[Rfam]
RNA sequence: AUUACCCGGGGACCUUGUUAAAGUGGAGAUUCUGAUUCAGCAGGUCUGGGAUGGGUCCUAAGAUUCUGCAUUUCUAAUAAGCUCCCAAGUGAUGCUGA
Number, nucleotide and partner (000 for none) at each position: 001a000002u000003u091004a090005c089006c000007c000008g000009g085010g084011g083012a000013c000014c081015u080016u079017g078018u077019u076020a075021a073022a072023g071024u000025g069026g000027a067028g066029a065030u000031u063032c062033u061034g000035a000036u000037u000038c000039a000040g000041c000042a000043g000044g000045u000046c000047u000048g000049g000050g000051a000052u000053g000054g000055g000056u000057c000058c000059u000060a000061a033062g032063a031064u000065u029066c028067u027068g000069c025070a000071u023072u022073u021074c000075u020076a019077a018078u017079a016080a015081g014082c000083u011084c010085c009086c000087a000088a000089g005090u004091g003092a000093u000094g000095c000096u000097g000098a000
RNA: mir-544 microRNA precursor family